[Rfam]
Nucleotides: 329
Stems, first nucleotide, its partner, number of pairs: 001329004007323003012284006020063005034048005072313005082260004092106005107122006123256005129250001143241009285301007
Number, partner (000 for none) and nucleotide at each position: 001329u002328c003327c004326g005000g006000g007323g008322g009321a010000a011000g012284c013283u014282c015281a016280c017279c018000g019000c020063c021062g022061a023060g024059g025000c026000c027000a028000c029000c030000c031000a032000c033000g034048g035047g036046g037045u038044g039000c040000a041000c042000g043000u044038c045037a046036c047035c048034c049000g050000c051000u052000g053000g054000c055000c056000c057000c058000g059024c060023c061022u062021c063020g064000g065000g066000g067000a068000a069000g070000g071000u072313c073312u074311g075310a076309g077000g078000g079000a080000a081000g082260g083259g084258c085257c086000g087000c088000c089000c090000g091000c092106g093105g094104c095103u096102c097000u098000u099000g100000c101000a102096g103095g104094g105093c106092c107122c108121c109120g110119c111118c112117c113000g114000c115000g116000c117112g118111g119110g120109c121108g122107g123256g124255u125254g126253a127252g128000c129250c130000a131000c132000c133000a134000g135000a136000a137000a138000g139000g140000g141000g142000g143241g144240g145239c146238g147237c148236c149235g150234c151233g152000c153000a154000g155000g156000g157000c158000c159000g160000g161000c162000c163000c164000g165000g166000g167000c168000a169000g170000g171000a172000g173000a174000a175000g176000c177000c178000g179000g180000u181000g182000a183000g184000g185000g186000g187000c188000u189000c190000g191000g192000a193000g194000g195000u196000g197000g198000c199000u200000c201000a202000c203000u204000u205000c206000c207000g208000g209000u210000c211000c212000c213000g214000c215000g216000g217000c218000g219000g220000a221000u222000g223000c224000u225000c226000g227000u228000g229000g230000c231000c232000c233151c234150g235149c236148g237147g238146u239145g240144c241143u242000u243000u244000g245000a246000g247000a248000c249000a250129g251000a252127c253126u254125c255124a256123c257085g258084g259083c260082c261000g262000g263000c264000g265000c266000g267000c268000u269000g270000a271000g272000u273000c274000c275000a276000a277000u278000g279017g280016g281015u282014g283013a284012g285301g286300u287299g288298g289297g290296g291295c292000a293000c294000g295291g296290c297289c298288u299287c300286a301285c302000a303000a304000c305000c306000c307000a308000a309076u310075u311074c312073a313072g314000a315000c316000u317000a318000c319000u320000c321009u322008c323007c324000c325000c326004c327003g328002g329001a